[Rfam]
RNA sequence: GGAGGCGACAGGCGGCCUGGUGGCCCCCACGGUCUUCAAAACCGGCGACCCGCUCACCCCGGGUGGUGGGUUCGAUUCCCAUCCGCCUCC
Numbered sequence: 001g002g003a004g005g006c007g008a009c010a011g012g013c014g015g016c017c018u019g020g021u022g023g024c025c026c027c028c029a030c031g032g033u034c035u036u037c038a039a040a041a042c043c044g045g046c047g048a049c050c051c052g053c054u055c056a057c058c059c060c061g062g063g064u065g066g067u068g069g070g071u072u073c074g075a076u077u078c079c080c081a082u083c084c085g086c087c088u089c090c
Stems, first nucleotide, its partner, number of pairs: 001090007012027001014025004030044004048064005067081004
RNA: Selenocysteine transfer RNA